Rfam assigns this 82-nucleotide RNA sequence from Schaedlerella arabinosiphila to the family "skipping-rope RNA". The family's consensus secondary structure is taken from published work. By type it is a small RNA.
[Rfam]
RNA sequence: UUAUUUAGAGGUCGGAAAAGGUUCCCGACACACUCUUAAGAAGAGUACCUGAGAUGCUGGAUACACCGCCCAGCCUAAAUAA
Numbered sequence: 001u002u003a004u005u006u007a008g009a010g011g012u013c014g015g016a017a018a019a020g021g022u023u024c025c026c027g028a029c030a031c032a033c034u035c036u037u038a039a040g041a042a043g044a045g046u047a048c049c050u051g052a053g054a055u056g057c058u059g060g061a062u063a064c065a066c067c068g069c070c071c072a073g074c075c076u077a078a079a080u081a082a
Stems, first nucleotide, its partner, number of pairs: 001082008011029005020067003031051001032046004056074005